[Rfam]
RNA sequence: UGCACGUUAGUGAAGGCCUCACAGGAAACCAGUGUGUGGUGUGUGAGGCCUGAAGUGUGUGUA
Numbered sequence: 001u002g003c004a005c006g007u008u009a010g011u012g013a014a015g016g017c018c019u020c021a022c023a024g025g026a027a028a029c030c031a032g033u034g035u036g037u038g039g040u041g042u043g044u045g046a047g048g049c050c051u052g053a054a055g056u057g058u059g060u061g062u063a
Stems, first nucleotide, its partner, number of pairs: 001063005015050009029039003